[Rfam]
RNA sequence: GGUUGUAUCGAUUCGAUCGGGAUACUCAUCAAAUUACAUUGAAAACCGAGACAACUUCUCUUGUCAAUGGCGGGCCACAUAAAGCGCGUCGCGCCUAAGCCGCAGGGCCGGUGGAUUACAAAGACGGGGAGCUCUCAUCACCUUUAUAGUAGGAGUUUUCAUCACAUCAUCGUUACGAUCCCCUUU
Numbered sequence: 001g002g003u004u005g006u007a008u009c010g011a012u013u014c015g016a017u018c019g020g021g022a023u024a025c026u027c028a029u030c031a032a033a034u035u036a037c038a039u040u041g042a043a044a045a046c047c048g049a050g051a052c053a054a055c056u057u058c059u060c061u062u063g064u065c066a067a068u069g070g071c072g073g074g075c076c077a078c079a080u081a082a083a084g085c086g087c088g089u090c091g092c093g094c095c096u097a098a099g100c101c102g103c104a105g106g107g108c109c110g111g112u113g114g115a116u117u118a119c120a121a122a123g124a125c126g127g128g129g130a131g132c133u134c135u136c137a138u139c140a141c142c143u144u145u146a147u148a149g150u151a152g153g154a155g156u157u158u159u160c161a162u163c164a165c166a167u168c169a170u171c172g173u174u175a176c177g178a179u180c181c182c183c184u185u186u
Stems, first nucleotide, its partner, number of pairs: 055131002058129001060128006068120002075114004086094003099108003